[Rfam]
RNA sequence: UUUCCUACAAUGUCCGGUUAAAGUUAACCGACACUUUACUAGAAAUUGUAAGAACGG
Numbered sequence: 001u002u003u004c005c006u007a008c009a010a011u012g013u014c015c016g017g018u019u020a021a022a023g024u025u026a027a028c029c030g031a032c033a034c035u036u037u038a039c040u041a042g043a044a045a046u047u048g049u050a051a052g053a054a055c056g057g
Base pairs, nucleotide, nucleotide: 002054003053004052006050007049008048009047010046011045013043014042016040017039018038020036021035023032024031025030
Shown here is a 57-nucleotide RNA from Acyrthosiphon pisum, a member of the family "mir-3015 microRNA precursor family". Rfam 15.1 lists 82 matches to the family in 2 species. Rfam links the family to the GO terms miRNA-mediated post-transcriptional gene silencing and RISC complex.